[Rfam]
Small nucleolar RNA snoR99: a 108-nucleotide sequence from Olea europaea. NCBI's taxonomy places the organism under Eukaryota, Embryophyta, Gunneridae, Oleeae, Olea europaea. Its family is annotated with RNA processing and nucleolus in the Gene Ontology. The family has 9 seed sequences and 733 matches in Rfam 15.1. The match comes from Rfam's covariance-model search (59 bits). It is annotated as an H/ACA-box small nucleolar RNA.
RNA sequence: UUGCUUCCGGGAUGAUAAGUCCCUGAAAUUCAAAAUUUUCAUCCAUCCAUCACUUUGUCAGCAUUUUUCAUUUACCUGAUUUGCUGACCAUACAGGAAUGGAACAAUU
Dot-bracket structure: .........................................(((((..........(((((((..................))))))).........)))))......